[Rfam]
Annotation
The record is a 137-nucleotide RNA from Aotus nancymaae, which matches "U4 spliceosomal RNA" in Rfam. The base pairs follow the family's consensus structure, which is taken from published work. Rfam's curators write: U4 small nuclear RNA (U4 snRNA) is a component of the major U2-dependent spliceosome. On this family, see Zwieb, Nucleic Acids Res 1997: "The uRNA database". Lineage of the source: Eukaryota > Dipnotetrapodomorpha > Theria > Aotidae > Aotus.
RNA sequence: AGCUUUGCCCAGUGGCAGUAUUGUAGCCAAUGAGGUUUGAGGCAUGAUUAUUGAAAUAAUUGAAAACUUUCCCAGUACACCACGAUGACAACUUGCAACAUAGUUGGCUUUGGCAAUUUUUGACAUCUCUACGGAGA
Numbered sequence: 001a002g003c004u005u006u007g008c009c010c011a012g013u014g015g016c017a018g019u020a021u022u023g024u025a026g027c028c029a030a031u032g033a034g035g036u037u038u039g040a041g042g043c044a045u046g047a048u049u050a051u052u053g054a055a056a057u058a059a060u061u062g063a064a065a066a067c068u069u070u071c072c073c074a075g076u077a078c079a080c081c082a083c084g085a086u087g088a089c090a091a092c093u094u095g096c097a098a099c100a101u102a103g104u105u106g107g108c109u110u111u112g113g114c115a116a117u118u119u120u121u122g123a124c125a126u127c128u129c130u131a132c133g134g135a136g137a
Stems, first nucleotide, its partner, number of pairs: 020048005026043003034038001083113001085110001087108001089106005128137003